[Rfam]
RNA sequence: CGACUGCAUCAAGAGGGGCAUAGCCCCACCAACCGCCCACUCCGGGAACGGUGGUCCAAAUGAUGCGCCAAUGGCUCUGCAUUGCAGACAUGGAACAUAAAGGAGACCU
Numbered sequence: 001c002g003a004c005u006g007c008a009u010c011a012a013g014a015g016g017g018g019c020a021u022a023g024c025c026c027c028a029c030c031a032a033c034c035g036c037c038c039a040c041u042c043c044g045g046g047a048a049c050g051g052u053g054g055u056c057c058a059a060a061u062g063a064u065g066c067g068c069c070a071a072u073g074g075c076u077c078u079g080c081a082u083u084g085c086a087g088a089c090a091u092g093g094a095a096c097a098u099a100a101a102g103g104a105g106a107c108c109u
Stems, first nucleotide, its partner, number of pairs: 006066005015027005028055003033051003037046002040105004068093003
RNA: SAM-I/IV (S-adenosyl methionine) riboswitch aptamer